[Rfam]
Annotation: A member of the RNA family "Coronavirus 3' UTR pseudoknot" from Alphacoronavirus suis, 63 nucleotides long. Rfam links the family to the GO term viral genome replication. The base pairs follow the family's consensus structure, which is taken from published work. The literature on the family includes a 1999 paper in J Virol by Williams et al., "A phylogenetically conserved hairpin-type 3' untranslated region pseudoknot functions in coronavirus RNA replication". The sequence is in the family's curated seed alignment. Rfam's curators write: Coronaviruses are plus-strand RNA viruses with ~30kb genomes. The 3' UTR region of coronavirus genomes contains a conserved ~55nt pseudoknot structure which has been shown to be necessary for viral genome replication. The mechanism of cis-regulation is unclear, but this element is postulated to function in the plus-strand. The seed alignment was expanded in 2020 by Eric Nawrocki. By type it is a cis-regulatory element. Its Rfam clan is "Coronavirus 3' UTR".
RNA sequence: CUACUCUUGUACAGAAUGGUAAGCACGUGUAAUAGGAGGUACAAGCAACCCUAUUGCAUAUUA
Dot-bracket structure: ......[[[[[[...............(((((((((..]]]]]].....))))))))).....